[Rfam]
RNA sequence: AGCCAAUGAUGACAGAACAAGUUAACUUUUCUGACACCUACUAUGAGAGCUGAACCACAGCUCCUGAUUCUAACUUGAUUCUGAGGCUG
Numbered sequence: 001a002g003c004c005a006a007u008g009a010u011g012a013c014a015g016a017a018c019a020a021g022u023u024a025a026c027u028u029u030u031c032u033g034a035c036a037c038c039u040a041c042u043a044u045g046a047g048a049g050c051u052g053a054a055c056c057a058c059a060g061c062u063c064c065u066g067a068u069u070c071u072a073a074c075u076u077g078a079u080u081c082u083g084a085g086g087c088u089g
Stems, first nucleotide, its partner, number of pairs: 001088004049061004

A member of the RNA family "Small nucleolar RNA SNORD60" from Xiphophorus maculatus, 89 nucleotides long.
The family is grouped with related families in Rfam's "SNORD60 clan".
By type it is a C/D-box small nucleolar RNA.
The organism belongs to Xiphophorus, within Eukaryota.